A member of the RNA family "mir-181 microRNA precursor family" from Danio rerio, 80 nucleotides long.
On this family, see Ambros, Cell 2001: "microRNAs: tiny regulators with great potential".
Rfam 15.1 lists 3,490 matches to the family in 650 species.
Lineage of the source: Eukaryota > Opisthokonta > Eumetazoa > Actinopteri > Danio.
It is one of the family's seed sequences.
[Rfam]
RNA sequence: AGGUCAUAAUCAACAUUCAUUGCUGUCGGUGGGUUUAGUCUUGUAACAGCUCUCUGAACAAUGAAUGUAACUGUGGCCCA
Numbered sequence: 001a002g003g004u005c006a007u008a009a010u011c012a013a014c015a016u017u018c019a020u021u022g023c024u025g026u027c028g029g030u031g032g033g034u035u036u037a038g039u040c041u042u043g044u045a046a047c048a049g050c051u052c053u054c055u056g057a058a059c060a061a062u063g064a065a066u067g068u069a070a071c072u073g074u075g076g077c078c079c080a
Stems, first nucleotide, its partner, number of pairs: 002079002004076005014067009026057004031052001033050003
Pairs were carried over by alignment from the consensus structure, which was predicted with PFOLD.